A member of the RNA family "Bacterial large subunit ribosomal RNA" from Tenacibaculum jejuense, 231 nucleotides of a longer RNA. It scores 2752 bits against the family's covariance model. The organism belongs to Tenacibaculum, within Bacteria. Pairs were carried over by alignment from the consensus structure, which is taken from published work.

[Rfam]
RNA sequence: GAGUUACUGUUGCUAGCGAGGUUAAGGAUUUAAGGUCCGGAGCCGAAGCGAAAGCGAGUCUGAAUAGGGCGUAUAGUUAGUAGUAGUAGACGCGAAACCGAGUGAUCUAUCCAUGGGCAGGUUGAAGCUGUGGUAACACACAGUGGAGGACCGAACCAGUUGACGUUGAAAAGUCUUUGGAUGACCUGUGGAUAGGGGUGAAAGGCCAAUCAAACUCGGAAAUAGCUCGUA
Numbered sequence: 001g002a003g004u005u006a007c008u009g010u011u012g013c014u015a016g017c018g019a020g021g022u023u024a025a026g027g028a029u030u031u032a033a034g035g036u037c038c039g040g041a042g043c044c045g046a047a048g049c050g051a052a053a054g055c056g057a058g059u060c061u062g063a064a065u066a067g068g069g070c071g072u073a074u075a076g077u078u079a080g081u082a083g084u085a086g087u088a089g090a091c092g093c094g095a096a097a098c099c100g101a102g103u104g105a106u107c108u109a110u111c112c113a114u115g116g117g118c119a120g121g122u123u124g125a126a127g128c129u130g131u132g133g134u135a136a137c138a139c140a141c142a143g144u145g146g147a148g149g150a151c152c153g154a155a156c157c158a159g160u161u162g163a164c165g166u167u168g169a170a171a172a173g174u175c176u177u178u179g180g181a182u183g184a185c186c187u188g189u190g191g192a193u194a195g196g197g198g199u200g201a202a203a204g205g206c207c208a209a210u211c212a213a214a215c216u217c218g219g220a221a222a223u224a225g226c227u228c229g230u231a
Base pairs, nucleotide, nucleotide: 005088006087007086008085009084010083011082012081013080014079015078016077017076020044021043022042023041026038027037028036048055049054058070059069060068061067091229092228094226098219099218100217101216102215103214107195108194109193110192111191112190113189114188115187116186117185118183120152121151122150123149127144128143129142130141131140132139156180157179158178162175163174164173197207198206199205